[Rfam]
RNA sequence: CUAACACAAAUUUGUAUGGAGUUGGAACAGCGCCCUUAGCGGCAAACGUAAGCAGACGUUUCAACUCCAUACAAAUCUUAGUUA
Numbered sequence: 001c002u003a004a005c006a007c008a009a010a011u012u013u014g015u016a017u018g019g020a021g022u023u024g025g026a027a028c029a030g031c032g033c034c035c036u037u038a039g040c041g042g043c044a045a046a047c048g049u050a051a052g053c054a055g056a057c058g059u060u061u062c063a064a065c066u067c068c069a070u071a072c073a074a075a076u077c078u079u080a081g082u083u084a
Stems, first nucleotide, its partner, number of pairs: 008078001010076007018068001020066009034052001036050001039047001
This 84-nucleotide RNA from Bombyx mori belongs to the Rfam family "mir-2807 microRNA precursor family". The base pairs follow the family's consensus structure, which was predicted with RNAalifold. Rfam 15.1 lists 5,120 matches to the family in 8 species. Its family is annotated with RISC complex and miRNA-mediated post-transcriptional gene silencing in the Gene Ontology.